RNA: tRNA
RNA sequence: UGCCCUAUGGUGUAAUUGGCAACACGAAGGUUUCUGGUUCCUUUAUUCUUGGUUCGAGUCCAGGUAGGGCAG
Numbered sequence: 001u002g003c004c005c006u007a008u009g010g011u012g013u014a015a016u017u018g019g020c021a022a023c024a025c026g027a028a029g030g031u032u033u034c035u036g037g038u039u040c041c042u043u044u045a046u047u048c049u050u051g052g053u054u055c056g057a058g059u060c061c062a063g064g065u066a067g068g069g070c071a072g
Stems, first nucleotide, its partner, number of pairs: 001071007010025004027043004048064005
Dot-bracket structure: (((((((..((((........)))).((((.........))))....(((((.......)))))))))))).